RNA: tRNA
Organism: Candidatus Defluviicoccus seviourii
RNA sequence: GGAGGGGUGCCCGAGCGGCUAAAGGGGACGGUCUGUAAAACCGUUGGCGCACGCCUACGUAGGUUCGAAUCCUACCCCCUCCA
Numbered sequence: 001g002g003a004g005g006g007g008u009g010c011c012c013g014a015g016c017g018g019c020u021a022a023a024g025g026g027g028a029c030g031g032u033c034u035g036u037a038a039a040a041c042c043g044u045u046g047g048c049g050c051a052c053g054c055c056u057a058c059g060u061a062g063g064u065u066c067g068a069a070u071c072c073u074a075c076c077c078c079c080u081c082c083a
Stems, first nucleotide, its partner, number of pairs: 001082007010026003028044005059075005